[Rfam]
RNA: mir-449 microRNA precursor family
Organism: Mus musculus
RNA sequence: UGUGUGUGAUGGCUUGGCAGUGUAUUGUUAGCUGGUUGAGUAUGUGAGCGGCACCAGCUAACAUGCGACUGCUCUCCUAUUGCACACA
Numbered sequence: 001u002g003u004g005u006g007u008g009a010u011g012g013c014u015u016g017g018c019a020g021u022g023u024a025u026u027g028u029u030a031g032c033u034g035g036u037u038g039a040g041u042a043u044g045u046g047a048g049c050g051g052c053a054c055c056a057g058c059u060a061a062c063a064u065g066c067g068a069c070u071g072c073u074c075u076c077c078u079a080u081u082g083c084a085c086a087c088a
Stems, first nucleotide, its partner, number of pairs: 001088012016073006022066003027062010041050001043048001